[Rfam]
RNA: Small nucleolar RNA SNORA70
RNA sequence: UUGCAGCCAAUUAAGCCGACUGUGCUCUUUCCACUGUGGGAGCCCAGUGUGCCAUGGCCGAAAACAGCAACCUCUGUAGUAUAUACAGCCUGUUGCCCUAAGGGACCUUGGCGACAGCC
Numbered sequence: 001u002u003g004c005a006g007c008c009a010a011u012u013a014a015g016c017c018g019a020c021u022g023u024g025c026u027c028u029u030u031c032c033a034c035u036g037u038g039g040g041a042g043c044c045c046a047g048u049g050u051g052c053c054a055u056g057g058c059c060g061a062a063a064a065c066a067g068c069a070a071c072c073u074c075u076g077u078a079g080u081a082u083a084u085a086c087a088g089c090c091u092g093u094u095g096c097c098c099u100a101a102g103g104g105a106c107c108u109u110g111g112c113g114a115c116a117g118c119c
Stems, first nucleotide, its partner, number of pairs: 003052003019048004025042004076106002086095003